[Rfam]
The family of this 146-nucleotide sequence from Ochotona princeps is "Small nucleolar RNA SNORA12". The organism belongs to Ochotona, within Eukaryota.
RNA sequence: AUUUGUGGUGGUUUUCUCUCUGGCACAUUUGUCAAGUUUUCAAAUGGGCCUGACUCCACCACAUACAUUGUAAGGGAGCUGGCAAAGGCUCGAUGACAAAGACAUCUCUUCUGAGCCCUUUGCACCAGAGCUUUGCUCCCACAUGU
Numbered sequence: 001a002u003u004u005g006u007g008g009u010g011g012u013u014u015u016c017u018c019u020c021u022g023g024c025a026c027a028u029u030u031g032u033c034a035a036g037u038u039u040u041c042a043a044a045u046g047g048g049c050c051u052g053a054c055u056c057c058a059c060c061a062c063a064u065a066c067a068u069u070g071u072a073a074g075g076g077a078g079c080u081g082g083c084a085a086a087g088g089c090u091c092g093a094u095g096a097c098a099a100a101g102a103c104a105u106c107u108c109u110u111c112u113g114a115g116c117c118c119u120u121u122g123c124a125c126c127a128g129a130g131c132u133u134u135g136c137u138c139c140c141a142c143a144u145g146u
Stems, first nucleotide, its partner, number of pairs: 005062007022050003026046006075139005081090003108130003
U108 belongs to the H/ACA family of snoRNAs. The sequence is predicted to guide the pseudouridylation of the U372 residue in the 28S rRNA subunit. However it has not been reported as a pseudouridylation site. It is annotated as an H/ACA-box small nucleolar RNA. Rfam links the family to the GO terms nucleolus and RNA processing. The base pairs follow the family's consensus structure, which was predicted with RNAalifold.